[Rfam]
RNA sequence: GGAGGAAUACCCAAGAGGCUGAAGGGAUCGGUCUUGAAAACCGACAGGGUGUAAAAGCCGCGGGGGUUCAAAUCCCUCUUCCUCCG
Numbered sequence: 001g002g003a004g005g006a007a008u009a010c011c012c013a014a015g016a017g018g019c020u021g022a023a024g025g026g027a028u029c030g031g032u033c034u035u036g037a038a039a040a041c042c043g044a045c046a047g048g049g050u051g052u053a054a055a056a057g058c059c060g061c062g063g064g065g066g067u068u069c070a071a072a073u074c075c076c077u078c079u080u081c082c083u084c085c086g
Stems, first nucleotide, its partner, number of pairs: 001085007010026003028044005062078005
Dot-bracket structure: (((((((..(((...........))).(((((.......))))).................(((((.......)))))))))))).

About this RNA: Shown here is an 86-nucleotide RNA from Acholeplasma laidlawii, a member of the family "tRNA". Pairs were carried over by alignment from the consensus structure, which is taken from published work. Transfer RNA (tRNA) molecules are approximately 80 nucleotides in length. The sequence is in the family's curated seed alignment. Lineage of the source: Bacteria > Bacillati > Mollicutes > Acholeplasmatales > Acholeplasma. Rfam classes the family as a transfer RNA.